[Rfam]
RNA sequence: AAGCCAAAGCAGGUGUUUUGCUGUUUCGUCCUGUUUCUUACUUUCCAUAGGAGAACGGUGUCAGGAAAGUAAGUGGCUU
Numbered sequence: 001a002a003g004c005c006a007a008a009g010c011a012g013g014u015g016u017u018u019u020g021c022u023g024u025u026u027c028g029u030c031c032u033g034u035u036u037c038u039u040a041c042u043u044u045c046c047a048u049a050g051g052a053g054a055a056c057g058g059u060g061u062c063a064g065g066a067a068a069g070u071a072a073g074u075g076g077c078u079u
Base pairs, nucleotide, nucleotide: 001079002078003077004076005075006074010033011032012031013030039071040070041069042068043067044066045065046064
Dot-bracket structure: ((((((...((((................)))).....((((((((.................))))))))..))))))
CyVA-1 RNA: a 79-nucleotide RNA from Rivularia sp. PCC 7116.
Rfam's curators write: Cyanobacteria, Acidobacteria (1 example), Verrucomicrobia (1 example).
By type it is a small RNA.
The sequence is in the family's curated seed alignment.
The base pairs follow the family's consensus structure, which is taken from published work.